Notes
Shown here is a 97-nucleotide sequence from Pristimantibacillus lignocellulolyticus, a member of the family "c-di-GMP-I riboswitch aptamer". Taxonomically the source falls in Pristimantibacillus (SeqCode) (Bacteria, Bacillota, Bacilli, Paenibacillaceae). Gene Ontology term of the family: cyclic-di-GMP binding. GEMM was predicted in a large-scale screen for bacterial structured RNA regulatory elements.

[Rfam]
RNA sequence: UGGAAUAAAAGGCAAAUCCGUACGAAAGUCGGAGACGCAAAGCCACGGGUCUAAAGCAUCAGAUACAUUAGGAUGCAACGAUAGCCGGGCCGCUCGA
Numbered sequence: 001u002g003g004a005a006u007a008a009a010a011g012g013c014a015a016a017u018c019c020g021u022a023c024g025a026a027a028g029u030c031g032g033a034g035a036c037g038c039a040a041a042g043c044c045a046c047g048g049g050u051c052u053a054a055a056g057c058a059u060c061a062g063a064u065a066c067a068u069u070a071g072g073a074u075g076c077a078a079c080g081a082u083a084g085c086c087g088g089g090c091c092g093c094u095c096g097a
Base pairs, nucleotide, nucleotide: 012038013037017033018032019031020030022029023028042090043089044088046087047086048085049082050081051080056076057075058074059073